[Rfam]
RNA sequence: AGUUCUGAUGCACCGCGAAACGAAAUUUGCAGGUGGAGAACGAGGAGACAUUCGAGGCACAGAGUGCCCGAUCGAAAGCGCUGUUGGAUUCGUUCCAACAGCGCUUUUUA
Numbered sequence: 001a002g003u004u005c006u007g008a009u010g011c012a013c014c015g016c017g018a019a020a021c022g023a024a025a026u027u028u029g030c031a032g033g034u035g036g037a038g039a040a041c042g043a044g045g046a047g048a049c050a051u052u053c054g055a056g057g058c059a060c061a062g063a064g065u066g067c068c069c070g071a072u073c074g075a076a077a078g079c080g081c082u083g084u085u086g087g088a089u090u091c092g093u094u095c096c097a098a099c100a101g102c103g104c105u106u107u108u109u110a
Stems, first nucleotide, its partner, number of pairs: 002041004009037001011035004015030005045073001047072001052071003056068005075107014
A member of the RNA family "Burkholderia sRNA 1" from Burkholderia pseudomallei, 110 nucleotides long. The base pairs follow the family's consensus structure, which was predicted with RNAfold. Rfam's curators put it in the seed alignment. The literature on the family includes a 2017 paper in Sci Rep by Sass et al., "Identification of small RNAs abundant in Burkholderia cenocepacia biofilms reveal putative regulators with a potential role in carbon and iron metabolism". Taxonomically the source falls in Burkholderia pseudomallei (Bacteria, Pseudomonadati, Pseudomonadota, Burkholderiales).